[Rfam]
RNA: Potassium channel RNA editing signal
RNA sequence: GUCGGGUACGGGGACAUGUAUCCCGUGACCAUUGGCGGCAAGAUCGUGGGCUCCCUCUGCGCCAUUGCCGGCGUGCUGACCAUCGCCCUCCCCGUGCCCGUCAUCGUGUCCAAC
Numbered sequence: 001g002u003c004g005g006g007u008a009c010g011g012g013g014a015c016a017u018g019u020a021u022c023c024c025g026u027g028a029c030c031a032u033u034g035g036c037g038g039c040a041a042g043a044u045c046g047u048g049g050g051c052u053c054c055c056u057c058u059g060c061g062c063c064a065u066u067g068c069c070g071g072c073g074u075g076c077u078g079a080c081c082a083u084c085g086c087c088c089u090c091c092c093c094g095u096g097c098c099c100g101u102c103a104u105c106g107u108g109u110c111c112a113a114c
Stems, first nucleotide, its partner, number of pairs: 001114002004111002007108005013102003018097004037077004049063003